[Rfam]
RNA sequence: GCUUUUCACGCACCCCCACCUCGAACUGCACCAAGGGAACCGGGGAACCACUUCCUUGGGGUGAAUCGGACGCCCUCCGCCAGGGGGCGCCCGUAGGAGACCUUCCUGCUCCGAACCCGUCAGCUAACCCGGUAGGCGAGAAGGAAGGAAAGG
Numbered sequence: 001g002c003u004u005u006u007c008a009c010g011c012a013c014c015c016c017c018a019c020c021u022c023g024a025a026c027u028g029c030a031c032c033a034a035g036g037g038a039a040c041c042g043g044g045g046a047a048c049c050a051c052u053u054c055c056u057u058g059g060g061g062u063g064a065a066u067c068g069g070a071c072g073c074c075c076u077c078c079g080c081c082a083g084g085g086g087g088c089g090c091c092c093g094u095a096g097g098a099g100a101c102c103u104u105c106c107u108g109c110u111c112c113g114a115a116c117c118c119g120u121c122a123g124c125u126a127a128c129c130c131g132g133u134a135g136g137c138g139a140g141a142a143g144g145a146a147g148g149a150a151a152g153g
Base pairs, nucleotide, nucleotide: 002037003036004035005034006033039133040132041131042130043129044128049058050057059118060117061116067093068092069091096112097111098110099109
Dot-bracket structure: .(((((..........................))))).((((((....((......))(((.....(((.....................)))..((((.........))))...))).........))))))....................
The family of this 153-nucleotide RNA sequence from Streptomyces auratus is "c-di-AMP riboswitch aptamer (ydaO/yuaA leader)". It scores 81 bits against the family's covariance model. Rfam's curators write: This family represents a conserved RNA structure found upstream of the ydaO and yuaA genes in Bacillus subtilis and related genes in other bacteria. The ydaO/yuaA element is thought to act as a genetic 'off' switch for the ydaO and yuaA genes in its native state. It is believed that the element may be triggered during osmotic shock leading to activation of ydaO, a predicted amino acid transporter gene, and members of the yuaA-yubG operon which code for KtrA and KtrB K+ transporters. Taxonomically the source falls in Streptomyces auratus (Bacteria, Bacillati, Actinomycetota, Kitasatosporales). Rfam links the family to the GO terms cyclic-di-AMP binding and regulation of gene expression.